A member of the RNA family "BsrC" from Paenibacillus flagellatus, 85 nucleotides long.
RNA sequence: AAAACCUAAAACAAUGAAAGCCCUGCCUCUCUUCCAUCCUUACGACUCCUUGAUCGUGCCAGUGUGAAUCAGGUAUUGAUAUCAA
Numbered sequence: 001a002a003a004a005c006c007u008a009a010a011a012c013a014a015u016g017a018a019a020g021c022c023c024u025g026c027c028u029c030u031c032u033u034c035c036a037u038c039c040u041u042a043c044g045a046c047u048c049c050u051u052g053a054u055c056g057u058g059c060c061a062g063u064g065u066g067a068a069u070c071a072g073g074u075a076u077u078g079a080u081a082u083c084a085a
Stems, first nucleotide, its partner, number of pairs: 035066002039062002041058005047052001
Rfam describes the family as follows. The 301 nucleotide sequence from Kouji Nakamura has been trimmed to a highly conserved ~85 nucleotide long core to form this family.